DUF805b RNA: a 36-nucleotide RNA.
The family's consensus secondary structure is taken from published work.
Rfam classes the family as a cis-regulatory element.
RNA sequence: AGGGAGUAAGCCGAAAAUCCCAAUCAAGAGUAGGCA
Numbered sequence: 001a002g003g004g005a006g007u008a009a010g011c012c013g014a015a016a017a018u019c020c021c022a023a024u025c026a027a028g029a030g031u032a033g034g035c036a
Base pairs, nucleotide, nucleotide: 002021003020004019005018010035011034012033